[Rfam]
RNA sequence: AUCUUAUCGAGAGAAGCAGAGGGAUAUGGCCCAAUGAAGCUUCAGCAACCUCUAAUUUAUUUUAGAAAGGUGCUAAUUCCAGCAAGACGUAUGUCUUGAGAGAUAAGAG
Numbered sequence: 001a002u003c004u005u006a007u008c009g010a011g012a013g014a015a016g017c018a019g020a021g022g023g024a025u026a027u028g029g030c031c032c033a034a035u036g037a038a039g040c041u042u043c044a045g046c047a048a049c050c051u052c053u054a055a056u057u058u059a060u061u062u063u064a065g066a067a068a069g070g071u072g073c074u075a076a077u078u079c080c081a082g083c084a085a086g087a088c089g090u091a092u093g094u095c096u097u098g099a100g101a102g103a104u105a106a107g108a109g
Stems, first nucleotide, its partner, number of pairs: 002108007013043005021032003027081003044074004049070002051066004078101001083098006
A member of the RNA family "SAM riboswitch aptamer (S box leader)" from Ureibacillus massiliensis, 109 nucleotides long. The family's consensus secondary structure is taken from published work. Rfam links the family to the GO term regulation of gene expression. A search with the family's covariance model found it, with a score of 98 bits. NCBI's taxonomy places the organism under Bacteria, Bacillota, Caryophanaceae, Ureibacillus, Ureibacillus massiliensis.